Rfam assigns this 257-nucleotide sequence from Echeneis naucrates to the family "RNase MRP".
It is annotated as a ribozyme.
The base pairs follow the family's consensus structure, which is taken from published work.
The match comes from Rfam's covariance-model search (147 bits).
A reference for the family is Schmitt et al. (1993), "Secondary structure of RNase MRP RNA as predicted by phylogenetic comparison", FASEB J.
Lineage of the source: Eukaryota > Bilateria > Deuterostomia > Echeneidae > Echeneis.
RNA sequence: GGGCAUUCAGAAGGCUUGCUCUCUGGGCUACAUGCAGAGAACCCGGUUUCUCCUCGUGCUCCAGGGGAAAGUCCCCGGACCGCCGGCAGAAAGUGCCCUGGAUCGAUCCAGAGCCGGCCGCCGCUUCACCCGCGACGAGCCGAGACGUUCGUCCGAACCGAGCUCGGUGUUCGUCGGCCGGCGUUGUCAGCUGUCAGAGAAAUGCAAGUGAGCAGUUACUGACGCUCGAACUGAACGGGGCUCAUUCUCAGAAUGCA
Numbered sequence: 001g002g003g004c005a006u007u008c009a010g011a012a013g014g015c016u017u018g019c020u021c022u023c024u025g026g027g028c029u030a031c032a033u034g035c036a037g038a039g040a041a042c043c044c045g046g047u048u049u050c051u052c053c054u055c056g057u058g059c060u061c062c063a064g065g066g067g068a069a070a071g072u073c074c075c076c077g078g079a080c081c082g083c084c085g086g087c088a089g090a091a092a093g094u095g096c097c098c099u100g101g102a103u104c105g106a107u108c109c110a111g112a113g114c115c116g117g118c119c120g121c122c123g124c125u126u127c128a129c130c131c132g133c134g135a136c137g138a139g140c141c142g143a144g145a146c147g148u149u150c151g152u153c154c155g156a157a158c159c160g161a162g163c164u165c166g167g168u169g170u171u172c173g174u175c176g177g178c179c180g181g182c183g184u185u186g187u188c189a190g191c192u193g194u195c196a197g198a199g200a201a202a203u204g205c206a207a208g209u210g211a212g213c214a215g216u217u218a219c220u221g222a223c224g225c226u227c228g229a230a231c232u233g234a235a236c237g238g239g240g241c242u243c244a245u246u247c248u249c250a251g252a253a254u255g256c257a
Stems, first nucleotide, its partner, number of pairs: 003256006010249002014209006022065005027059002037052005070242002073240004085097004098111005114181007122173001127169003137165004147158004210227004